RNA: ZMP/ZTP riboswitch aptamer (pfl RNA motif)
Organism: Blautia pseudococcoides
RNA sequence: AAUAGUUUUGAUUUCUGACGGAUUACAAUGUGGAGCACCACAGUGAAGUCAAAAUGUAAGUGAGAGCCGACCGUCUGGGCAACGUUU
Numbered sequence: 001a002a003u004a005g006u007u008u009u010g011a012u013u014u015c016u017g018a019c020g021g022a023u024u025a026c027a028a029u030g031u032g033g034a035g036c037a038c039c040a041c042a043g044u045g046a047a048g049u050c051a052a053a054a055u056g057u058a059a060g061u062g063a064g065a066g067c068c069g070a071c072c073g074u075c076u077g078g079g080c081a082a083c084g085u086u087u
Stems, first nucleotide, its partner, number of pairs: 005055008015045001017075005030041004066080003